[Rfam]
Rfam assigns this 108-nucleotide sequence from Phenylobacterium glaciei to the family "TPP riboswitch aptamer (THI element)". Vitamin B(1) in its active form thiamin pyrophosphate (TPP) is an essential coenzyme that is synthesised by coupling of pyrimidine and thiazole moieties in bacteria. It scores 68 bits against the family's covariance model. The organism belongs to Phenylobacterium, within Bacteria. Its family is annotated with thiamine pyrophosphate binding in the Gene Ontology.
RNA sequence: GCGGCUUCUCCGGGGAGUCGCCGCAGCGGCUGAGAGGCGGGUUUGUCCCCGCGACCCGCCGAACCUGAUCCGGGUCAUGCCGGCGAAGGGAGGGAACGCGGGCGCUUC
Numbered sequence: 001g002c003g004g005c006u007u008c009u010c011c012g013g014g015g016a017g018u019c020g021c022c023g024c025a026g027c028g029g030c031u032g033a034g035a036g037g038c039g040g041g042u043u044u045g046u047c048c049c050c051g052c053g054a055c056c057c058g059c060c061g062a063a064c065c066u067g068a069u070c071c072g073g074g075u076c077a078u079g080c081c082g083g084c085g086a087a088g089g090g091a092g093g094g095a096a097c098g099c100g101g102g103c104g105c106u107u108c
Stems, first nucleotide, its partner, number of pairs: 006096005011058004020030004037052005064089003070083004